This 98-nucleotide RNA sequence from Vagococcus elongatus belongs to the Rfam family "THF (Tetrahydrofolate) riboswitch aptamer". The source organism's lineage runs through Bacteria, Bacillota, Bacilli, Lactobacillales and Vagococcus. Rfam's curators write: Tetrahydrofolate (THF) riboswitch was first reported for Ames et al. as an RNA motif in 5' untranslated (5'-UTR)regions of folate transport and biosynthesis genes in Firmicutes genomes. Its family is annotated with tetrahydrofolate metabolic process in the Gene Ontology. It scores 83 bits against the family's covariance model.
RNA sequence: AACAGAGUAAAGGACAAAGCGUUAAGUAUUUUUGAGAUGGGAUGUUGCUCUAAAAACGAAGAACAAUGGUUCGCGGUUUUGUCUUUGCAUUCGCUGCA
Numbered sequence: 001a002a003c004a005g006a007g008u009a010a011a012g013g014a015c016a017a018a019g020c021g022u023u024a025a026g027u028a029u030u031u032u033u034g035a036g037a038u039g040g041g042a043u044g045u046u047g048c049u050c051u052a053a054a055a056a057c058g059a060a061g062a063a064c065a066a067u068g069g070u071u072c073g074c075g076g077u078u079u080u081g082u083c084u085u086u087g088c089a090u091u092c093g094c095u096g097c098a
Stems, first nucleotide, its partner, number of pairs: 003096003010086010020075003026057002029055004034050003040092005061072004
Dot-bracket structure: ..(((....(((((((((((((...((.((((.(((...[[[[[...))).))))))...((((....))))))).)))))))))).]]]]].)))..